[Rfam]
Shown here is a 62-nucleotide RNA sequence from Sarcophilus harrisii, a member of the family "mir-21 microRNA precursor family".
The family's consensus secondary structure was predicted with RNAalifold.
The organism belongs to Sarcophilus, within Eukaryota.
RNA sequence: UGUCAGAUAGCUUAUCAGACUGAUGUUGACUGUUGGAUCUCAUGGCAACAGCAGUCGAUGGG
Numbered sequence: 001u002g003u004c005a006g007a008u009a010g011c012u013u014a015u016c017a018g019a020c021u022g023a024u025g026u027u028g029a030c031u032g033u034u035g036g037a038u039c040u041c042a043u044g045g046c047a048a049c050a051g052c053a054g055u056c057g058a059u060g061g062g
Stems, first nucleotide, its partner, number of pairs: 011062005018056005024050005030044001
On this family, see Xu et al., FEBS Lett 2006: "Identification of microRNAs from different tissues of chicken embryo and adult chicken".